Description:
Shown here is a 128-nucleotide sequence from Bhargavaea cecembensis, a member of the family "pan motif". Taxonomically the source falls in Bhargavaea cecembensis (Bacteria, Bacillati, Bacillota, Bhargavaea). It is annotated as a cis-regulatory element.
[Rfam]
RNA sequence: AGGGCGGUAUCGUAACUGAACUGCACCUGAAACAAGCUGAUUGGCCGGAAUAGCGAAUCCAUCCCGCGACGGGACGGAUCGCCUAAAGACUUGGUCCGCCUUGAUCCAAAAAAGACAGGGACGGAGAA
Numbered sequence: 001a002g003g004g005c006g007g008u009a010u011c012g013u014a015a016c017u018g019a020a021c022u023g024c025a026c027c028u029g030a031a032a033c034a035a036g037c038u039g040a041u042u043g044g045c046c047g048g049a050a051u052a053g054c055g056a057a058u059c060c061a062u063c064c065c066g067c068g069a070c071g072g073g074a075c076g077g078a079u080c081g082c083c084u085a086a087a088g089a090c091u092u093g094g095u096c097c098g099c100c101u102u103g104a105u106c107c108a109a110a111a112a113a114g115a116c117a118g119g120g121a122c123g124g125a126g127a128a
Base pairs, nucleotide, nucleotide: 001028002027003026004024005023006022007021008020010019011018096124097123098122099120100119101118102117103116105115106114